[Rfam]
RNA: traJ-II RNA
Organism: Pseudomonas aeruginosa
RNA sequence: GGGCAGGAUGUGUGAAGUAGGCCCACCAUGCAAGCAUGGUGAUCCUCUUCACUUCCCCUUAUUCGCGCCUGCGGCGCUCAACGGGGCAUCCUGCCCUGCGGGGCC
Numbered sequence: 001g002g003g004c005a006g007g008a009u010g011u012g013u014g015a016a017g018u019a020g021g022c023c024c025a026c027c028a029u030g031c032a033a034g035c036a037u038g039g040u041g042a043u044c045c046u047c048u049u050c051a052c053u054u055c056c057c058c059u060u061a062u063u064c065g066c067g068c069c070u071g072c073g074g075c076g077c078u079c080a081a082c083g084g085g086g087c088a089u090c091c092u093g094c095c096c097u098g099c100g101g102g103g104c105c
Stems, first nucleotide, its partner, number of pairs: 001096009012052006019046003024041005030035001055086004065077005